[Rfam]
RNA sequence: AAGGGGACUUCUAAUUGUUUGUAAAAAAUCGAGUAUUACAACCAUUGGAAUUUCUCUA
Numbered sequence: 001a002a003g004g005g006g007a008c009u010u011c012u013a014a015u016u017g018u019u020u021g022u023a024a025a026a027a028a029u030c031g032a033g034u035a036u037u038a039c040a041a042c043c044a045u046u047g048g049a050a051u052u053u054c055u056c057u058a
Base pairs, nucleotide, nucleotide: 002057003056004055005054006053007052009050010049011048012047013046014045016044017043019041020040021039022038023037024036026034
Dot-bracket structure: .((((((.((((((.((.((((((.(.......).)))))).)))))))).)))))).